[Rfam]
RNA sequence: CUCUGGGUCAUCACAUUGGUUCAGGGCAAAGGAG
Numbered sequence: 001c002u003c004u005g006g007g008u009c010a011u012c013a014c015a016u017u018g019g020u021u022c023a024g025g026g027c028a029a030a031g032g033a034g
Base pairs, nucleotide, nucleotide: 001026002025003024004023005022006021007020008019009018010017
The record is a 34-nucleotide sequence from Lentilactobacillus curieae, which matches "L31-Firmicutes ribosomal protein leader" in Rfam.
The sequence is in the family's curated seed alignment.
The literature on the family includes a 2020 paper in BMC Microbiol by Eckert and Weinberg, "Discovery of 20 novel ribosomal leader candidates in bacteria and archaea".
The source organism's lineage runs through Bacteria, Bacillati, Bacillota, Bacilli and Lentilactobacillus.